[Rfam]
RNA sequence: AUCACUUGAUGAACAUGAAAAUAAAAGACAAGCAUAUGUCUGAUUUUCCUUGAAGACACGUUUUUUCACGUCUGAUGAU
Numbered sequence: 001a002u003c004a005c006u007u008g009a010u011g012a013a014c015a016u017g018a019a020a021a022u023a024a025a026a027g028a029c030a031a032g033c034a035u036a037u038g039u040c041u042g043a044u045u046u047u048c049c050u051u052g053a054a055g056a057c058a059c060g061u062u063u064u065u066u067c068a069c070g071u072c073u074g075a076u077g078a079u
Base pairs, nucleotide, nucleotide: 001079002078003077004076
A member of the RNA family "Small nucleolar RNA SNORD27" from Pichia membranifaciens, 79 nucleotides long. It scores 53 bits against the family's covariance model. By type it is a C/D-box small nucleolar RNA. Its family is annotated with nucleolus and RNA processing in the Gene Ontology. The base pairs follow the family's consensus structure. Rfam 15.1 lists 218 matches to the family in 175 species.